[Rfam]
RNA sequence: UAGUAAGGUUGAACAGCUAAAGACGCGCCGUCCUGGCGCAACGCCGUUCUGCCCCACAUCCUGUGGG
Dot-bracket structure: ..........((((.((.......(((((.....)))))...)).))))...(((((.....)))))